[Rfam]
RNA sequence: CCCUCGGAGUGUUAUAGCAAAUGAGAGUAGUGUAUUAUAACAAUCACCAAAUCAGACACGUUGAACAGGGAA
Numbered sequence: 001c002c003c004u005c006g007g008a009g010u011g012u013u014a015u016a017g018c019a020a021a022u023g024a025g026a027g028u029a030g031u032g033u034a035u036u037a038u039a040a041c042a043a044u045c046a047c048c049a050a051a052u053c054a055g056a057c058a059c060g061u062u063g064a065a066c067a068g069g070g071a072a
Stems, first nucleotide, its partner, number of pairs: 001070004009059005022054003030047003035043002
RAGATH-18 RNA: a 72-nucleotide RNA sequence from Lachnoclostridium phytofermentans.
Taxonomically the source falls in Lachnoclostridium phytofermentans (Bacteria, Bacillota, Lachnospirales, Lachnoclostridium).
The sequence is in the family's curated seed alignment.